The family of this 285-nucleotide RNA sequence from Ktedonobacteria bacterium brp13 is "HNH endonuclease-associated RNA and ORF (HEARO) RNA". It is annotated as a non-coding RNA gene. The organism belongs to Ktedonobacteria, within Bacteria. The match comes from Rfam's covariance-model search (86 bits).
RNA sequence: GUCAGGAACCCUGUCCCCUAAACGGGACGGGCUUGUAGAGAUGGGGUGGCUUCUGCCCGUCUUCUCCGCAAGCUCACCUGACCAGUCCCAGCCAGGACCGAUCCUUGGAUGCCCCUUGGGGCGGGAAACGGUUAUCGGGCUACGAUAGCGAGAGUGUUCAAGAACGUACCAGUGGGUGCUUUGCCAGCCUGCUGCUCUAUAACUUCUGAGUUAAGUAGGUCUACGAGGGUUAAUCCGGUGCUCAGGAGGCGUGCAGAUCGCUAUCCUCGACGAGGCAGCCAUUAC
Numbered sequence: 001g002u003c004a005g006g007a008a009c010c011c012u013g014u015c016c017c018c019u020a021a022a023c024g025g026g027a028c029g030g031g032c033u034u035g036u037a038g039a040g041a042u043g044g045g046g047u048g049g050c051u052u053c054u055g056c057c058c059g060u061c062u063u064c065u066c067c068g069c070a071a072g073c074u075c076a077c078c079u080g081a082c083c084a085g086u087c088c089c090a091g092c093c094a095g096g097a098c099c100g101a102u103c104c105u106u107g108g109a110u111g112c113c114c115c116u117u118g119g120g121g122c123g124g125g126a127a128a129c130g131g132u133u134a135u136c137g138g139g140c141u142a143c144g145a146u147a148g149c150g151a152g153a154g155u156g157u158u159c160a161a162g163a164a165c166g167u168a169c170c171a172g173u174g175g176g177u178g179c180u181u182u183g184c185c186a187g188c189c190u191g192c193u194g195c196u197c198u199a200u201a202a203c204u205u206c207u208g209a210g211u212u213a214a215g216u217a218g219g220u221c222u223a224c225g226a227g228g229g230u231u232a233a234u235c236c237g238g239u240g241c242u243c244a245g246g247a248g249g250c251g252u253g254c255a256g257a258u259c260g261c262u263a264u265c266c267u268c269g270a271c272g273a274g275g276c277a278g279c280c281a282u283u284a285c
Stems, first nucleotide, its partner, number of pairs: 001082006010031002013028002017025002032072004085271003090141004144265006166200002170194008181278005203248009215239002218236002220233001223230002